[Rfam]
RNA sequence: GAAUGACGAGAUGGCAAGAUGUUGGCAUAGCUGUUUGCCUUCACCCUGCUAUGCCUCCAUAUUGCCAUUUUUACACUUC
Number, nucleotide and partner (000 for none) at each position: 001g000002a000003a000004u000005g074006a000007c000008g071009a070010g069011a068012u067013g066014g065015c064016a063017a062018g000019a060020u059021g058022u000023u000024g055025g054026c053027a052028u051029a050030g049031c048032u000033g000034u000035u000036u000037g000038c000039c000040u000041u000042c000043a000044c000045c000046c000047u000048g031049c030050u029051a028052u027053g026054c025055c024056u000057c000058c021059a020060u019061a000062u017063u016064g015065c014066c013067a012068u011069u010070u009071u008072u000073a000074c005075a000076c000077u000078u000079c000